[Rfam]
RNA sequence: UCUGAGCCCCCGACCCUGACUCCCAGCCGCUCACCCCUGGCGCACUUCCCCGGUGCCAGGUAGGAGCGGAUGGGGAUCAGGAUCUGGGGACACCGCCCG
Numbered sequence: 001u002c003u004g005a006g007c008c009c010c011c012g013a014c015c016c017u018g019a020c021u022c023c024c025a026g027c028c029g030c031u032c033a034c035c036c037c038u039g040g041c042g043c044a045c046u047u048c049c050c051c052g053g054u055g056c057c058a059g060g061u062a063g064g065a066g067c068g069g070a071u072g073g074g075g076a077u078c079a080g081g082a083u084c085u086g087g088g089g090a091c092a093c094c095g096c097c098c099g
Stems, first nucleotide, its partner, number of pairs: 010086001012084002015081002018078002021075005027069006036060008
This 99-nucleotide RNA sequence from Microbacterium pygmaeum belongs to the Rfam family "mraW RNA". The organism belongs to Microbacterium, within Bacteria.